[Rfam]
RNA sequence: AACACGCUCCUUAGAUCCACCUCUGGGGAGUUUCUCCGUCUCCGGUUCUGUUGUGUUCUCUCUCUGGGAGCAGCAGGAUCGGGCCGGAGGCUCCCAGCAGCUUUACGGCUGUACAGUUGGAGGUGCUUGAGUCAUUGGCGUGUGAGAUCAGUCUACCUGCUCACCCAGAAUCCUCUCUGCCCUGAUCCUUCACAGGAAAACGCCGGGGCAGAACAGCUGGAGAGCAGACAAA
Numbered sequence: 001a002a003c004a005c006g007c008u009c010c011u012u013a014g015a016u017c018c019a020c021c022u023c024u025g026g027g028g029a030g031u032u033u034c035u036c037c038g039u040c041u042c043c044g045g046u047u048c049u050g051u052u053g054u055g056u057u058c059u060c061u062c063u064c065u066g067g068g069a070g071c072a073g074c075a076g077g078a079u080c081g082g083g084c085c086g087g088a089g090g091c092u093c094c095c096a097g098c099a100g101c102u103u104u105a106c107g108g109c110u111g112u113a114c115a116g117u118u119g120g121a122g123g124u125g126c127u128u129g130a131g132u133c134a135u136u137g138g139c140g141u142g143u144g145a146g147a148u149c150a151g152u153c154u155a156c157c158u159g160c161u162c163a164c165c166c167a168g169a170a171u172c173c174u175c176u177c178u179g180c181c182c183u184g185a186u187c188c189u190u191c192a193c194a195g196g197a198a199a200a201c202g203c204c205g206g207g208g209c210a211g212a213a214c215a216g217c218u219g220g221a222g223a224g225c226a227g228a229c230a231a232a
Stems, first nucleotide, its partner, number of pairs: 002143007010131005018125008026095005035088004041083005048076004054070001057069004097112006157227005164220001167218002176212008184203001186198001188196001
Dot-bracket structure: .(((((((.(((((...(((((((((((((....((((..(((((..((((..(..((((.....)))))..))))..))))).))))..))))).((((((....)))))).....)))))))).))))).....))))))).............(((((..(..((.......(((((((((.(.(.......).)....).))))))))....)).)..))))).....
Shown here is a 232-nucleotide sequence from Sinocyclocheilus grahami, a member of the family "Small nucleolar RNA SNORA53".
Gene Ontology terms of the family: nucleolus and RNA processing.
The snoRNA ACA53 belongs to the H/ACA family of pseudouridylation guide snoRNAs.
The family has 28 seed sequences and 1,090 matches in Rfam 15.1.
The organism belongs to Sinocyclocheilus, within Eukaryota.
It is annotated as an H/ACA-box small nucleolar RNA.
A search with the family's covariance model found it, with a score of 108 bits.